[Rfam]
RNA sequence: UGAGUAAGUCAGCUUAAUCUAGAACUUCCCCUCAAGGUGAGUCUAGAACGGAGGAACCAAAAUUAGGGGCGCAUUUAUACUUUACCAGUGCUUUUUAGUACAAUAGGUUAAGUAUAGAGGGAUAUCUCUCAAUCCUAGCCCGUCAGCUAACUUCGUAAGCGUGGAGAGGAGAUUGA
Numbered sequence: 001u002g003a004g005u006a007a008g009u010c011a012g013c014u015u016a017a018u019c020u021a022g023a024a025c026u027u028c029c030c031c032u033c034a035a036g037g038u039g040a041g042u043c044u045a046g047a048a049c050g051g052a053g054g055a056a057c058c059a060a061a062a063u064u065a066g067g068g069g070c071g072c073a074u075u076u077a078u079a080c081u082u083u084a085c086c087a088g089u090g091c092u093u094u095u096u097a098g099u100a101c102a103a104u105a106g107g108u109u110a111a112g113u114a115u116a117g118a119g120g121g122a123u124a125u126c127u128c129u130c131a132a133u134c135c136u137a138g139c140c141c142g143u144c145a146g147c148u149a150a151c152u153u154c155g156u157a158a159g160c161g162u163g164g165a166g167a168g169g170a171g172a173u174u175g176a
Stems, first nucleotide, its partner, number of pairs: 012160003018047006048156006058066001067141003075117008120135004
A member of the RNA family "c-di-AMP riboswitch aptamer (ydaO/yuaA leader)" from Aliterella atlantica, 176 nucleotides long. It scores 67 bits against the family's covariance model.